[Rfam]
RNA sequence: CUCUCCGAAACAUAUUUAGGUAUGGCGUCAUGUUAGCUUCACGGGGGUAGAGCACUGGCAGGACUAGGGGGCACACCCGCUUACCAAACCCUAUCAAACUCCGAAUACCGUGAACGCGAUGCAUGGCAGACAGCCUGCGAGUGAUAAGAUCCGUAGACGAAAGGGAAACAACCCUGACCACCGACUAAGCGUCCCCAAGUACGUGCCAAGUGGGAAAGGAUGUGGAGCUGCACAGACAGCCAGGAGGUUAGCUUAGAAGCAGCUAUCCUUUAAAGAAAGCGUAAUAGCUCACUGGUCAAGCGGCUCCGCGCCAAAAAUGAUCGGGACUAAGCACGUCACCGAAGUCGUGGGCUCUGGCAACAGAGCGGUAGGAGAGCGUUCCGCAGGCCUGGGAAGGCGGGUGGCGAUGCCCGCUGGAGGCACCGGAAACGAGAAU
Numbered sequence: 001c002u003c004u005c006c007g008a009a010a011c012a013u014a015u016u017u018a019g020g021u022a023u024g025g026c027g028u029c030a031u032g033u034u035a036g037c038u039u040c041a042c043g044g045g046g047g048u049a050g051a052g053c054a055c056u057g058g059c060a061g062g063a064c065u066a067g068g069g070g071g072c073a074c075a076c077c078c079g080c081u082u083a084c085c086a087a088a089c090c091c092u093a094u095c096a097a098a099c100u101c102c103g104a105a106u107a108c109c110g111u112g113a114a115c116g117c118g119a120u121g122c123a124u125g126g127c128a129g130a131c132a133g134c135c136u137g138c139g140a141g142u143g144a145u146a147a148g149a150u151c152c153g154u155a156g157a158c159g160a161a162a163g164g165g166a167a168a169c170a171a172c173c174c175u176g177a178c179c180a181c182c183g184a185c186u187a188a189g190c191g192u193c194c195c196c197a198a199g200u201a202c203g204u205g206c207c208a209a210g211u212g213g214g215a216a217a218g219g220a221u222g223u224g225g226a227g228c229u230g231c232a233c234a235g236a237c238a239g240c241c242a243g244g245a246g247g248u249u250a251g252c253u254u255a256g257a258a259g260c261a262g263c264u265a266u267c268c269u270u271u272a273a274a275g276a277a278a279g280c281g282u283a284a285u286a287g288c289u290c291a292c293u294g295g296u297c298a299a300g301c302g303g304c305u306c307c308g309c310g311c312c313a314a315a316a317a318u319g320a321u322c323g324g325g326a327c328u329a330a331g332c333a334c335g336u337c338a339c340c341g342a343a344g345u346c347g348u349g350g351g352c353u354c355u356g357g358c359a360a361c362a363g364a365g366c367g368g369u370a371g372g373a374g375a376g377c378g379u380u381c382c383g384c385a386g387g388c389c390u391g392g393g394a395a396g397g398c399g400g401g402u403g404g405c406g407a408u409g410c411c412c413g414c415u416g417g418a419g420g421c422a423c424c425g426g427a428a429a430c431g432a433g434a435a436u
Stems, first nucleotide, its partner, number of pairs: 001376006011024005026129001027127007035120001036117002039113006050102001051100002056096003060092003067085002069082004133158001135156005141150002163174003178350004183346003189340001191339002199337001201336006218312002222309010239296005245269003250264003270274001275290001279288002351366006377431001379428005387421003396415008
The record is a 436-nucleotide part of an RNA from Fibrobacter succinogenes, which matches "Bacterial large subunit ribosomal RNA" in Rfam. Rfam 15.1 lists 51,934 matches to the family in 10,816 species. The sequence is in the family's curated seed alignment. The source organism's lineage runs through Bacteria, Fibrobacteraceae, Fibrobacter, Fibrobacter succinogenes and Fibrobacter succinogenes subsp. succinogenes.